[Rfam]
Shown here is a 52-nucleotide RNA sequence, a member of the family "6A RNA".
RNA sequence: AGAUUUGUUCGUAGAGCGCGAACAAGCAAAUAUUAAAGAACGCUCAAAUAGA
Numbered sequence: 001a002g003a004u005u006u007g008u009u010c011g012u013a014g015a016g017c018g019c020g021a022a023c024a025a026g027c028a029a030a031u032a033u034u035a036a037a038g039a040a041c042g043c044u045c046a047a048a049u050a051g052a
Base pairs, nucleotide, nucleotide: 006024007023008022009021010020011019014045015044016043017042
It is one of the family's seed sequences. The base pairs follow the family's consensus structure, which is taken from published work.